[Rfam]
Shown here is an 89-nucleotide RNA sequence from Caenorhabditis elegans, a member of the family "mir-247 microRNA precursor family". The organism belongs to Caenorhabditis, within Eukaryota. Rfam's curators put it in the seed alignment. Pairs were carried over by alignment from the consensus structure, which was predicted with RNAalifold. Gene Ontology terms of the family: miRNA-mediated post-transcriptional gene silencing and RISC complex. The family has 2 seed sequences and 3 matches in Rfam 15.1.

RNA sequence: AGCUAUUUUCCAAGUAGAGAAAAGUUUCUAAUUACCCAUCAUGCACAAAUGUGGUGACUAGAGCCUAUUCUCUUCUUGGAAAAGUGGCG
Number, nucleotide and partner (000 for none) at each position: 001a000002g088003c087004u086005a085006u084007u000008u000009u000010c079011c078012a077013a076014g075015u000016a073017g072018a071019g070020a069021a068022a000023a000024g000025u000026u000027u000028c061029u060030a059031a000032u057033u056034a055035c054036c053037c051038a050039u049040c000041a000042u047043g000044c000045a000046c000047a042048a000049a039050u038051g037052u000053g036054g035055u034056g033057a032058c000059u030060a029061g028062a000063g000064c000065c000066u000067a000068u021069u020070c019071u018072c017073u016074u000075c014076u013077u012078g011079g010080a000081a000082a000083a000084g006085u005086g004087g003088c002089g000